[Rfam]
RNA sequence: AUUAUGUGCUAGGGGUGCCUAAAUUUAGGCUGAGAAAUGAAUUUAUUCAUUAACCCUCAAAGACCUGAUCUGGAUAGUGCCAGCGUAGGAAAGCGUUUUUAUAAACAA
Numbered sequence: 001a002u003u004a005u006g007u008g009c010u011a012g013g014g015g016u017g018c019c020u021a022a023a024u025u026u027a028g029g030c031u032g033a034g035a036a037a038u039g040a041a042u043u044u045a046u047u048c049a050u051u052a053a054c055c056c057u058c059a060a061a062g063a064c065c066u067g068a069u070c071u072g073g074a075u076a077g078u079g080c081c082a083g084c085g086u087a088g089g090a091a092a093g094c095g096u097u098u099u100u101a102u103a104a105a106c107a108a
Base pairs, nucleotide, nucleotide: 006096007095008094009093010092011057012056013055014054017030018029019028020027021026037050038049039048040047041046064089065088066087067086070083071082072081073080
Dot-bracket structure: .....(((((((((..(((((....)))))......(((((....)))))...))))......((((..((((......))))..))))..)))))............

Shown here is a 108-nucleotide RNA sequence from Sarcina ventriculi, a member of the family "TPP riboswitch aptamer (THI element)". The family's consensus secondary structure is taken from published work. A search with the family's covariance model found it, with a score of 76 bits.